[Rfam]
Nucleotides: 131
Base pairs, nucleotide, nucleotide: 060092061091062090066086068084095109096108098107099106100105
Number, partner (000 for none) and nucleotide at each position: 001000u002000g003000a004000g005000u006000c007000c008000g009000u010000c011000c012000c013000g014000u015000g016000g017000a018000c019000g020000c021000c022000c023000u024000g025000c026000c027000c028000a029000u030000c031000c032000g033000a034000g035000c036000c037000g038000a039000c040000u041000c042000c043000c044000g045000g046000u047000u048000a049000g050000g051000c052000u053000g054000a055000u056000c057000c058000g059000g060092u061091g062090c063000c064000c065000u066086u067000g068084c069000u070000u071000c072000c073000g074000c075000a076000c077000a078000c079000g080000c081000g082000c083000g084068g085000g086066a087000g088000c089000c090062g091061c092060a093000u094000a095109g096108c097000c098107g099106a100105c101000a102000g103000c104000c105100g106099u107098c108096g109095c110000a111000c112000c113000c114000g115000a116000g117000g118000g119000a120000g121000c122000c123000c124000u125000u126000u127000u128000c129000a130000u131000g
Description: Shown here is a 131-nucleotide RNA sequence, a member of the family "Streptomyces-metH RNA". By type it is a small RNA. The match comes from Rfam's covariance-model search (87 bits).